[Rfam]
The family of this 139-nucleotide sequence from Chinchilla lanigera is "Small nucleolar RNA SNORA8".
RNA sequence: GGCAUUAUAUGGUAUCUGCACUCAACAGUUUAUUCUUGCUGGUGUGUUCAUAGGACAAUGCAAUAGAAAUUCAGUAUCUAGCAUUGUUAGUUUUCUUGGCUUUGUGCUUGUUAAACUUGGUAUUUCUAUUGAUACAGUA
Numbered sequence: 001g002g003c004a005u006u007a008u009a010u011g012g013u014a015u016c017u018g019c020a021c022u023c024a025a026c027a028g029u030u031u032a033u034u035c036u037u038g039c040u041g042g043u044g045u046g047u048u049c050a051u052a053g054g055a056c057a058a059u060g061c062a063a064u065a066g067a068a069a070u071u072c073a074g075u076a077u078c079u080a081g082c083a084u085u086g087u088u089a090g091u092u093u094u095c096u097u098g099g100c101u102u103u104g105u106g107c108u109u110g111u112u113a114a115a116c117u118u119g120g121u122a123u124u125u126c127u128a129u130u131g132a133u134a135c136a137g138u139a
Base pairs, nucleotide, nucleotide: 002061003060004059005058006057015054016053017052018047019046020045021044023042024040026038027037028036064128065127066126067125068124069123070122071120072119073118074117080108081107082106083105084104
Gene Ontology terms of the family: nucleolus and RNA processing.
The organism belongs to Chinchilla, within Eukaryota.
It scores 137 bits against the family's covariance model.